[Rfam]
RNA sequence: UGCUCGGCGCCUGGGACUUCGACUCAACCUAAGUAUUUUCAAGUGUAGGUGAGCAAAGUUUCAGGUGUUCGAGCGC
Numbered sequence: 001u002g003c004u005c006g007g008c009g010c011c012u013g014g015g016a017c018u019u020c021g022a023c024u025c026a027a028c029c030u031a032a033g034u035a036u037u038u039u040c041a042a043g044u045g046u047a048g049g050u051g052a053g054c055a056a057a058g059u060u061u062c063a064g065g066u067g068u069u070c071g072a073g074c075g076c
Stems, first nucleotide, its partner, number of pairs: 002074006008067007016059004023053004028049003
Rfam assigns this 76-nucleotide RNA sequence from Brugia malayi to the family "mir-87 microRNA precursor family". Gene Ontology terms of the family: miRNA-mediated post-transcriptional gene silencing and RISC complex. Rfam 15.1 lists 420 matches to the family in 285 species. The literature on the family includes a 2003 paper in Dev Cell by Aravin et al., "The small RNA profile during Drosophila melanogaster development". The sequence is in the family's curated seed alignment.